A member of the RNA family "CyVA-1 RNA" from Mastigocoleus testarum, 78 nucleotides long. The source organism's lineage runs through Bacteria, Bacillati, Cyanophyceae, Hapalosiphonaceae and Mastigocoleus testarum. The family's consensus secondary structure is taken from published work. Cyanobacteria, Acidobacteria (1 example), Verrucomicrobia (1 example). A search with the family's covariance model found it, with a score of 70 bits.

RNA sequence: UUGCUAGAGCAGGUGUUAUGCUGUUUGUCCUGCUGAUUGCUUACCAAAGGAGAACGGUGUCAGGAAAGCAACUAGUUA
Numbered sequence: 001u002u003g004c005u006a007g008a009g010c011a012g013g014u015g016u017u018a019u020g021c022u023g024u025u026u027g028u029c030c031u032g033c034u035g036a037u038u039g040c041u042u043a044c045c046a047a048a049g050g051a052g053a054a055c056g057g058u059g060u061c062a063g064g065a066a067a068g069c070a071a072c073u074a075g076u077u078a
Stems, first nucleotide, its partner, number of pairs: 001078001003076004009033004038070005044064002